[Rfam]
RNA sequence: CCCCGAUGAGGAAACCCCCACGCGUCCGACCGCCCCCCCCGGCACCGGAACCUGCAAAGGUCGAACCCACCGGCGCCGGCGGGCGGAGAGGAGGAGGCGGCGUUCAGCAGAACGGUCUGAGGGGA
Numbered sequence: 001c002c003c004c005g006a007u008g009a010g011g012a013a014a015c016c017c018c019c020a021c022g023c024g025u026c027c028g029a030c031c032g033c034c035c036c037c038c039c040c041g042g043c044a045c046c047g048g049a050a051c052c053u054g055c056a057a058a059g060g061u062c063g064a065a066c067c068c069a070c071c072g073g074c075g076c077c078g079g080c081g082g083g084c085g086g087a088g089a090g091g092a093g094g095a096g097g098c099g100g101c102g103u104u105c106a107g108c109a110g111a112a113c114g115g116u117c118u119g120a121g122g123g124g125a
Base pairs, nucleotide, nucleotide: 001124002123003122004121
Rfam assigns this 125-nucleotide RNA from Alectura lathami to the family "Small nucleolar RNA SNORD22". The source organism's lineage runs through Eukaryota, Vertebrata, Saurischia, Neognathae and Alectura. A reference for the family is Tycowski et al. (1996), "A mammalian gene with introns instead of exons generating stable RNA products", Nature. By type it is a C/D-box small nucleolar RNA. Gene Ontology terms of the family: nucleolus and RNA processing. The base pairs follow the family's consensus structure, which was predicted with PFOLD.